The family of this 117-nucleotide RNA sequence from Microthlaspi erraticum is "MIR860 microRNA precursor family".
The family's consensus secondary structure was predicted with RNAalifold.
NCBI's taxonomy places the organism under Eukaryota, Euphyllophyta, Pentapetalae, Brassicaceae, Microthlaspi.

RNA sequence: UGGUCAGGUUUAAUAUAUAUAGUCCAAUGUAUUGAAGUACUAGCAUACCAGCUCUCUAAUGAGCUGAUGUGGGUGAGUAGUUCAAUACAUUGGACUAUAUGUAUGAAAUUUGACUAA
Numbered sequence: 001u002g003g004u005c006a007g008g009u010u011u012a013a014u015a016u017a018u019a020u021a022g023u024c025c026a027a028u029g030u031a032u033u034g035a036a037g038u039a040c041u042a043g044c045a046u047a048c049c050a051g052c053u054c055u056c057u058a059a060u061g062a063g064c065u066g067a068u069g070u071g072g073g074u075g076a077g078u079a080g081u082u083c084a085a086u087a088c089a090u091u092g093g094a095c096u097a098u099a100u101g102u103a104u105g106a107a108a109u110u111u112g113a114c115u116a117a
Base pairs, nucleotide, nucleotide: 001116002115003114004113005112006111007110008109009108010107011106013104014103015102016101017100018099019098020097021096022095023094024093025092026091027090028089029088030087031086032085033084034083035082036081038079039078040077041076044071045070046069047068049066050065051064052063053062054061
Dot-bracket structure: (((((((((((.((((((((((((((((((((((((.((((..((((.((((((......)))))).))))....)))).)))))))))))))))))))))))).))))))))))).